The family of this 115-nucleotide sequence from Humibacillus sp. DSM 29435 is "SAM (S-adenosyl methionine) riboswitch aptamer". Rfam links the family to the GO terms S-adenosylmethionine metabolic process and regulation of gene expression. A reference for the family is Weinberg et al. (2008), "The aptamer core of SAM-IV riboswitches mimics the ligand-binding site of SAM-I riboswitches", RNA. The family is grouped with related families in Rfam's "SAM clan". The family's consensus secondary structure is taken from published work. The source organism's lineage runs through Bacteria, Bacillati, Actinomycetes, Micrococcales and Humibacillus.
RNA sequence: GGUCAUGAGCGUCAGCGACAAGCCCCGGCUCGCUGGCCGGCAACCCUCCACCCGCGGUGGGGUGCCCCGGGUGAAGACCUGGCCCGUGGGCGCCGCCGACGGGCAAGCGCGGAGA
Dot-bracket structure: ((((....(.((((((....((......)).)))))))(((..(((.((......))..))).))).........))))..((((((.(((...))).))))))...........